Background:
A member of the RNA family "Small nucleolar RNA SNORA69" from Xiphorhynchus elegans, 132 nucleotides long. Pairs were carried over by alignment from the consensus structure, which was predicted with PFOLD. Rfam describes the family as follows. U69 is a member of the H/ACA class of small nucleolar RNAs (snoRNAs) which act as guides in the the modification of uridines to pseudouridines. Gene Ontology terms of the family: RNA processing and nucleolus.
[Rfam]
RNA sequence: AAAGCAGGCUGCAAUUGCAGUGCUUCCUGCAGUGGGAGCAUUGCCAUUUUCCUGCUGAGAGCAACUCUGUUAAAGCUGUCUGUGGUUUCACCCUUACCGUGGUGAAAACAUUUGGUCUUAACAUGGACAACA
Numbered sequence: 001a002a003a004g005c006a007g008g009c010u011g012c013a014a015u016u017g018c019a020g021u022g023c024u025u026c027c028u029g030c031a032g033u034g035g036g037a038g039c040a041u042u043g044c045c046a047u048u049u050u051c052c053u054g055c056u057g058a059g060a061g062c063a064a065c066u067c068u069g070u071u072a073a074a075g076c077u078g079u080c081u082g083u084g085g086u087u088u089c090a091c092c093c094u095u096a097c098c099g100u101g102g103u104g105a106a107a108a109c110a111u112u113u114g115g116u117c118u119u120a121a122c123a124u125g126g127a128c129a130a131c132a
Stems, first nucleotide, its partner, number of pairs: 003056006018043009067126004074119002083110002086107007094099001
Dot-bracket structure: ..((((((.........(((((((((........))))))))).......))))))..........((((...((.......((.(((((((.(....).))))))).)).......))...))))......